Source information:
The record is a 124-nucleotide sequence from Anabarilius grahami, which matches "Small nucleolar RNA SNORA26" in Rfam. The family's RNA type in Rfam is H/ACA-box small nucleolar RNA. It scores 42 bits against the family's covariance model. Rfam 15.1 lists 1,943 matches to the family in 640 species. Gene Ontology terms of the family: RNA processing and nucleolus. The family's consensus secondary structure was predicted with RNAalifold.

Nucleotides: 124
Base pairs, nucleotide, nucleotide: 002050003049004048005047006046008044009043014037016035017034019032057118063116064115065114066113067112074103075102076101077100078099079098082095085092
Number, partner (000 for none) and nucleotide at each position: 001000u002050u003049g004048c005047c006046c007000a008044c009043u010000g011000g012000a013000g014037u015000c016035u017034g018000u019032c020000g021000u022000g023000u024000c025000u026000c027000u028000a029000g030000u031000g032019g033000c034017c035016a036000u037014a038000a039000a040000a041000g042000g043009g044008g045000g046006g047005g048004g049003u050002a051000c052000a053000g054000u055000a056000a057118g058000c059000u060000a061000c062000u063116c064115u065114u066113g067112c068000u069000a070000a071000a072000a073000c074103c075102u076101a077100g078099g079098u080000c081000a082095g083000a084000u085092g086000u087000c088000a089000c090000a091000u092085c093000u094000c095082u096000g097000u098079g099078c100077c101076u102075g103074g104000a105000u106000c107000c108000u109000g110000u111000c112067g113066c114065a115064a116063g117000a118057c119000a120000c121000a122000u123000g124000u